[Rfam]
RNA sequence: GGCAGUUUUAUGGUGAUGCACCCCAGAAUCGGGCUCCCUCCUCUCUGGUUCCGGGUGCGUCACCUGAGAACCGCA
Numbered sequence: 001g002g003c004a005g006u007u008u009u010a011u012g013g014u015g016a017u018g019c020a021c022c023c024c025a026g027a028a029u030c031g032g033g034c035u036c037c038c039u040c041c042u043c044u045c046u047g048g049u050u051c052c053g054g055g056u057g058c059g060u061c062a063c064c065u066g067a068g069a070a071c072c073g074c075a
Base pairs, nucleotide, nucleotide: 002074003073005071006070007069008068009067012064013063014062015061016060017059019057020056021055022054023053026051027050028049029048030047031046032045033044